[Rfam]
RNA sequence: GUAAACGACCCCCGCCUUAUGGCAGGGGCUUGUGAGGCAACUCGCAAGCCACGUUGACCAGGGAAAGCGGUAACCAACCCGCUACGUUUACAAUAGGUCGUCAAGACUCACCGGCGGAUGCUUCCUCAGUCCGCCGCUCUGAAAGGUCAGGAUUAGGCUGGCGCAAGGUAAAACGCCGAAGGUUCUGAUCGCCGCUGCGAAGCGGGAGCCGGUUGUAGACAGUCCCGAGAUCUGAUGCGC
Numbered sequence: 001g002u003a004a005a006c007g008a009c010c011c012c013c014g015c016c017u018u019a020u021g022g023c024a025g026g027g028g029c030u031u032g033u034g035a036g037g038c039a040a041c042u043c044g045c046a047a048g049c050c051a052c053g054u055u056g057a058c059c060a061g062g063g064a065a066a067g068c069g070g071u072a073a074c075c076a077a078c079c080c081g082c083u084a085c086g087u088u089u090a091c092a093a094u095a096g097g098u099c100g101u102c103a104a105g106a107c108u109c110a111c112c113g114g115c116g117g118a119u120g121c122u123u124c125c126u127c128a129g130u131c132c133g134c135c136g137c138u139c140u141g142a143a144a145g146g147u148c149a150g151g152a153u154u155a156g157g158c159u160g161g162c163g164c165a166a167g168g169u170a171a172a173a174c175g176c177c178g179a180a181g182g183u184u185c186u187g188a189u190c191g192c193c194g195c196u197g198c199g200a201a202g203c204g205g206g207a208g209c210c211g212g213u214u215g216u217a218g219a220c221a222g223u224c225c226c227g228a229g230a231u232c233u234g235a236u237g238c239g240c
Stems, first nucleotide, its partner, number of pairs: 001058002004055004010028002012025001015022002029048008061226004066083005086220009096210001108142002112136008124239001126237001145190009159178005

This 240-nucleotide sequence from Allochromatium warmingii belongs to the Rfam family "HNH endonuclease-associated RNA and ORF (HEARO) RNA". Rfam 15.1 lists 952 matches to the family in 249 species. A reference for the family is Weinberg et al. (2009), "Exceptional structured noncoding RNAs revealed by bacterial metagenome analysis", Nature. A search with the family's covariance model found it, with a score of 97 bits. It is annotated as a non-coding RNA gene.